RNA: Small nucleolar RNA SNORA53
RNA sequence: UACACGCUCCUUAGAUCCACCUUUGGGACUUGUCUGUUGACUUCUGCUGGUAGAUCUCAGAGCACUUCGGUGAUGGGGUCGCCAGUACUGGUGACAGAUUAUGAUCAGCAACUUUUCUGGUUGUACAAUCAGAGGUGCUUGAGUCAUUGGCGUGUGAGAGUAAUAUACCUGCCUAUUAGCCUGUAAUGUUGUGAUGUGAACGGCCUGUGCUGUUUCUACCAUCAGAACUCGGCUGGUUUGCGGACAUU
Number, nucleotide and partner (000 for none) at each position: 001u000002a155003c154004a153005c152006g151007c150008u149009c000010c143011u142012u141013a140014g139015a000016u000017c000018c137019a136020c135021c134022u133023u132024u131025g130026g000027g106028a000029c000030u101031u000032g099033u098034c000035u000036g095037u094038u093039g092040a000041c091042u000043u000044c000045u087046g086047c085048u000049g000050g082051u000052a000053g080054a079055u078056c077057u076058c075059a074060g000061a000062g000063c000064a000065c000066u000067u000068c000069g000070g000071u000072g000073a000074u059075g058076g057077g056078g055079u054080c053081g000082c050083c000084a000085g047086u046087a045088c000089u000090g000091g041092u039093g038094a037095c036096a000097g000098a033099u032100u000101a030102u000103g000104a000105u000106c027107a000108g124109c123110a122111a121112c120113u119114u000115u000116u000117c000118u000119g113120g112121u111122u110123g109124u108125a000126c000127a000128a000129u000130c025131a024132g023133a022134g021135g020136u019137g018138c000139u014140u013141g012142a011143g010144u000145c000146a000147u000148u000149g008150g007151c006152g005153u004154g003155u002156g000157a000158g000159a000160g000161u000162a000163a000164u000165a000166u000167a000168c000169c243170u242171g241172c240173c000174u000175a000176u236177u000178a234179g233180c232181c231182u000183g000184u000185a000186a000187u000188g000189u000190u226191g000192u224193g223194a222195u221196g220197u000198g000199a000200a000201c000202g217203g216204c000205c000206u000207g000208u000209g000210c000211u000212g000213u000214u000215u000216c203217u202218a000219c000220c196221a195222u194223c193224a192225g000226a190227a000228c000229u000230c000231g181232g180233c179234u178235g000236g176237u000238u000239u000240g172241c171242g170243g169244a000245c000246a000247u000248u000